RNA sequence: UCGGCCCCGGUUCACGUGCACGCAGCCCGCGUGUGCGACCCGGUGCC
Numbered sequence: 001u002c003g004g005c006c007c008c009g010g011u012u013c014a015c016g017u018g019c020a021c022g023c024a025g026c027c028c029g030c031g032u033g034u035g036c037g038a039c040c041c042g043g044u045g046c047c
Stems, first nucleotide, its partner, number of pairs: 003047003007043004015037009